[Rfam]
A member of the RNA family "Cia-dependent small RNA csRNA1" from Streptococcus gordonii, 90 nucleotides long.

RNA sequence: CAUAAGUUAAGAAUACUUAGCUUGAACUCCUAAAACUUUUCUUUUUCAUAAUAAUCUCCCUAAAAGACCACCCAAUCAGGUGGUCUUUUC
Numbered sequence: 001c002a003u004a005a006g007u008u009a010a011g012a013a014u015a016c017u018u019a020g021c022u023u024g025a026a027c028u029c030c031u032a033a034a035a036c037u038u039u040u041c042u043u044u045u046u047c048a049u050a051a052u053a054a055u056c057u058c059c060c061u062a063a064a065a066g067a068c069c070a071c072c073c074a075a076u077c078a079g080g081u082g083g084u085c086u087u088u089u090c
Base pairs, nucleotide, nucleotide: 004023005022006021007020008019009018010017011016064087065086066085067084068083069082070081071080072079
Taxonomically the source falls in Streptococcus gordonii str. Challis (Bacteria, Bacillati, Streptococcaceae, Streptococcus). The literature on the family includes a 2007 paper in Mol Microbiol by Halfmann et al., "Identification of the genes directly controlled by the response regulator CiaR in Streptococcus pneumoniae: five out of 15 promoters drive expression of small non-coding RNAs".